The family of this 114-nucleotide RNA is "TPP riboswitch aptamer (THI element)". Vitamin B(1) in its active form thiamin pyrophosphate (TPP) is an essential coenzyme that is synthesised by coupling of pyrimidine and thiazole moieties in bacteria.

RNA sequence: UCCACACGCUAGGGGUGCUCCAGCUCAGUGGCUCCGGCCCUGGCUGGGUGCUGAGAAAUACCCUUUGAACCUGAACGCGAUAAUGCGCGCGAAGGGAAGCGUCUUUGCAUGCUU
Number, nucleotide and partner (000 for none) at each position: 001u000002c000003c000004a000005c000006a102007c101008g100009c099010u098011a064012g063013g062014g061015g000016u058017g051018c050019u000020c048021c047022a000023g000024c000025u000026c000027a000028g000029u000030g000031g000032c000033u000034c000035c000036g000037g000038c000039c000040c000041u000042g000043g000044c000045u000046g000047g021048g020049u000050g018051c017052u000053g000054a000055g000056a000057a000058a016059u000060a000061c014062c013063c012064u011065u000066u000067g000068a000069a000070c095071c094072u093073g000074a000075a000076c089077g088078c087079g086080a000081u000082a000083a000084u000085g000086c079087g078088c077089g076090c000091g000092a000093a072094g071095g070096g000097a000098a010099g009100c008101g007102u006103c000104u000105u000106u000107g000108c000109a000110u000111g000112c000113u000114u000